Rfam assigns this 270-nucleotide part of an RNA from Vanilla planifolia to the family "Eukaryotic large subunit ribosomal RNA". Lineage of the source: Eukaryota > Viridiplantae > Magnoliopsida > Petrosaviidae > Vanilla. It scores 2156 bits against the family's covariance model.
RNA sequence: UGAGUCCGGCUACGCUUGCGAAUCGACGCAAGAGCAAGCCCGGAAGGCAAGGAAGUGAUUGGUGGGAUCCUGGCUUGAGGGGUGAGUCAUCGAUCGACCCAUCUUUCAGAAGGGUUCGAGGUGAGAGCUCCGCCGGGACCCGGAAGAUGGUGAAUCAUGCCCUGAGCGGGCGGCUUUAGGAAACUGUGGAGGCCCGAGCGAUAACUGACGCAAAUCGUCUGGUCUGGACUGGGUAUAGCGAAGACUAAUCGAACCAUCUAGUAGCUGGUU
Dot-bracket structure: .....(((((...(((..(...(...((............))...)...(.....)....(((((...((..........))....)))))..(((((((...(...)...))).))).)....))))...)))))..((.(...((((((.....((((((.(.(.((((.((...((....))))....))))...(.(..((.((......)))).).)..)...).))))))((......))......))))))......).))..
Numbered sequence: 001u002g003a004g005u006c007c008g009g010c011u012a013c014g015c016u017u018g019c020g021a022a023u024c025g026a027c028g029c030a031a032g033a034g035c036a037a038g039c040c041c042g043g044a045a046g047g048c049a050a051g052g053a054a055g056u057g058a059u060u061g062g063u064g065g066g067a068u069c070c071u072g073g074c075u076u077g078a079g080g081g082g083u084g085a086g087u088c089a090u091c092g093a094u095c096g097a098c099c100c101a102u103c104u105u106u107c108a109g110a111a112g113g114g115u116u117c118g119a120g121g122u123g124a125g126a127g128c129u130c131c132g133c134c135g136g137g138a139c140c141c142g143g144a145a146g147a148u149g150g151u152g153a154a155u156c157a158u159g160c161c162c163u164g165a166g167c168g169g170g171c172g173g174c175u176u177u178a179g180g181a182a183a184c185u186g187u188g189g190a191g192g193c194c195c196g197a198g199c200g201a202u203a204a205c206u207g208a209c210g211c212a213a214a215u216c217g218u219c220u221g222g223u224c225u226g227g228a229c230u231g232g233g234u235a236u237a238g239c240g241a242a243g244a245c246u247a248a249u250c251g252a253a254c255c256a257u258c259u260a261g262u263a264g265c266u267g268g269u270u
Stems, first nucleotide, its partner, number of pairs: 006136005014128003019125001023046001027042002050056001061091005069082002094120001095118003098114003104108001139268002142265001146258006157236006164229001166225001168195004173187002178185002199222001201220001204218002207216002237246002